[Rfam]
RNA: Insect-specific Flavivirus 3' UTR cis-acting replication element (CRE)
Organism: Ceratopteris richardii
RNA sequence: UGUGUGUAGAUACACACAUAAAUAUAACAAACAAAAGCAAUGCACAGUAUGCAUUGCUUUUGUUUGUUAUAUUUAUGUGUGU
Numbered sequence: 001u002g003u004g005u006g007u008a009g010a011u012a013c014a015c016a017c018a019u020a021a022a023u024a025u026a027a028c029a030a031a032c033a034a035a036a037g038c039a040a041u042g043c044a045c046a047g048u049a050u051g052c053a054u055u056g057c058u059u060u061u062g063u064u065u066g067u068u069a070u071a072u073u074u075a076u077g078u079g080u081g082u
Stems, first nucleotide, its partner, number of pairs: 012082004017077004022072002025069005034061001035059009